[Rfam]
RNA sequence: AUGCUAGAUAAAGCGCCAGGACUUAAAAAUUGCAUAUUUUUAAGUUGACGAGGAACAGGGUUUAUCGAAUAUCGGCGGAUGCCCUGCGGUGUGUUUACCACCGAAAAGGUUUUACAAAACAUAUAAGCGAUUAUAUGUACAAAAAAAACCGGGUAAACUG
Numbered sequence: 001a002u003g004c005u006a007g008a009u010a011a012a013g014c015g016c017c018a019g020g021a022c023u024u025a026a027a028a029a030u031u032g033c034a035u036a037u038u039u040u041u042a043a044g045u046u047g048a049c050g051a052g053g054a055a056c057a058g059g060g061u062u063u064a065u066c067g068a069a070u071a072u073c074g075g076c077g078g079a080u081g082c083c084c085u086g087c088g089g090u091g092u093g094u095u096u097a098c099c100a101c102c103g104a105a106a107a108g109g110u111u112u113u114a115c116a117a118a119a120c121a122u123a124u125a126a127g128c129g130a131u132u133a134u135a136u137g138u139a140c141a142a143a144a145a146a147a148a149c150c151g152g153g154u155a156a157a158c159u160g
Stems, first nucleotide, its partner, number of pairs: 020046008029037001056086005065075004087103005108150006120137007
Description
The family of this 160-nucleotide sequence from Tepidibacter thalassicus is "glmS glucosamine-6-phosphate activated ribozyme aptamer". Gene Ontology terms of the family: catalytic activity and regulation of gene expression. Rfam classes the family as a riboswitch. Pairs were carried over by alignment from the consensus structure, which is taken from published work. NCBI's taxonomy places the organism under Bacteria, Bacillati, Bacillota, Peptostreptococcaceae, Tepidibacter thalassicus. A search with the family's covariance model found it, with a score of 120 bits.